[Rfam]
RNA: Small nucleolar RNA SNORD82
Organism: Silurus meridionalis
RNA sequence: UGCACAGAUGAUGAGACUCAAGGGACUUAAUUCUGAUACUUGAUGAUUUUUUUAAAAAUCUGAUGUGC
Numbered sequence: 001u002g003c004a005c006a007g008a009u010g011a012u013g014a015g016a017c018u019c020a021a022g023g024g025a026c027u028u029a030a031u032u033c034u035g036a037u038a039c040u041u042g043a044u045g046a047u048u049u050u051u052u053u054a055a056a057a058a059u060c061u062g063a064u065g066u067g068c
Stems, first nucleotide, its partner, number of pairs: 002068005